[Rfam]
RNA sequence: CACACGUGAGGCAUGGGAUUAUCCGGGAGACAUCCGGAUCGUUCCGCCGGUGGGCGCAAUCAAGAAUGCGCUCUACGCCUUGCGGAGGUUCAACCGGAAAAGGAGAAAAAGG
Numbered sequence: 001c002a003c004a005c006g007u008g009a010g011g012c013a014u015g016g017g018a019u020u021a022u023c024c025g026g027g028a029g030a031c032a033u034c035c036g037g038a039u040c041g042u043u044c045c046g047c048c049g050g051u052g053g054g055c056g057c058a059a060u061c062a063a064g065a066a067u068g069c070g071c072u073c074u075a076c077g078c079c080u081u082g083c084g085g086a087g088g089u090u091c092a093a094c095c096g097g098a099a100a101a102g103g104a105g106a107a108a109a110a111g112g
Base pairs, nucleotide, nucleotide: 001087003085005084006083007082008081009080010079011078016045017044024036025035026034053072054071055070056069057068
RNA: rpsB sRNA